[Rfam]
RNA sequence: AUUGACCUAAUUUGUAAGUUGCUUUGGAUAAAAGCGUCUGCUAAAUGAAUGACU
Numbered sequence: 001a002u003u004g005a006c007c008u009a010a011u012u013u014g015u016a017a018g019u020u021g022c023u024u025u026g027g028a029u030a031a032a033a034g035c036g037u038c039u040g041c042u043a044a045a046u047g048a049a050u051g052a053c054u
Base pairs, nucleotide, nucleotide: 013043014041015040016039020036021035022034023033024032025031